[Rfam]
RNA: Small nucleolar RNA SNORA20
Organism: Monodelphis domestica
RNA sequence: CUUCCCAUUUAUUUGCUGCCAUUCUUUCAGUAGGAUGAGCAGUUAUACGCAUGGGAUACAGUAAGAUUAGUCCUGUAAAUUAAGAUGAAAUCAACAUUUCAUCUCUUACAGGUCUAUCACAUUU
Numbered sequence: 001c002u003u004c005c006c007a008u009u010u011a012u013u014u015g016c017u018g019c020c021a022u023u024c025u026u027u028c029a030g031u032a033g034g035a036u037g038a039g040c041a042g043u044u045a046u047a048c049g050c051a052u053g054g055g056a057u058a059c060a061g062u063a064a065g066a067u068u069a070g071u072c073c074u075g076u077a078a079a080u081u082a083a084g085a086u087g088a089a090a091u092c093a094a095c096a097u098u099u100c101a102u103c104u105c106u107u108a109c110a111g112g113u114c115u116a117u118c119a120c121a122u123u124u
Stems, first nucleotide, its partner, number of pairs: 003056006015043005022035001023033001068116003072112006083104009
Dot-bracket structure: ..((((((......(((((..((.........).)...))))).......))))))...........(((.((((((.....(((((((((....)))))))))..)))))).)))........